[Rfam]
RNA sequence: CGCUCCGGUCCUCCCUGCGAUCCCUAUGCACCACCCACGAGGGAGAAAGCACCCCACCAAGCCCCACCCCUCCCUCCCGCCGGGCAAACUCACUCCCGCGAGUGAAUAUGCCCAAGUGGGCUGGAUUCGGGACGGGUUGCCUGCCUUACGCUCAGCGCCAGCAGCACCACAUCACUCGAGACAUGUGACGGCCCCCGCCGGGAGCGCAAUUCCCGAUGCGAGGGCCUGACCACCAAGGAAGCCAAAGCAAAGGAACACUUCCCG
Numbered sequence: 001c002g003c004u005c006c007g008g009u010c011c012u013c014c015c016u017g018c019g020a021u022c023c024c025u026a027u028g029c030a031c032c033a034c035c036c037a038c039g040a041g042g043g044a045g046a047a048a049g050c051a052c053c054c055c056a057c058c059a060a061g062c063c064c065c066a067c068c069c070c071u072c073c074c075u076c077c078c079g080c081c082g083g084g085c086a087a088a089c090u091c092a093c094u095c096c097c098g099c100g101a102g103u104g105a106a107u108a109u110g111c112c113c114a115a116g117u118g119g120g121c122u123g124g125a126u127u128c129g130g131g132a133c134g135g136g137u138u139g140c141c142u143g144c145c146u147u148a149c150g151c152u153c154a155g156c157g158c159c160a161g162c163a164g165c166a167c168c169a170c171a172u173c174a175c176u177c178g179a180g181a182c183a184u185g186u187g188a189c190g191g192c193c194c195c196c197g198c199c200g201g202g203a204g205c206g207c208a209a210u211u212c213c214c215g216a217u218g219c220g221a222g223g224g225c226c227u228g229a230c231c232a233c234c235a236a237g238g239a240a241g242c243c244a245a246a247g248c249a250a251a252g253g254a255a256c257a258c259u260u261c262c263c264g
Base pairs, nucleotide, nucleotide: 007234008233009232017076019074090105091104092103093102094101095100120156121155122154123153124152190226191225192224193223194222196220197219198218200214201213202212203211237262238261239260240259241258
RNA: Streptomyces sRNA 4677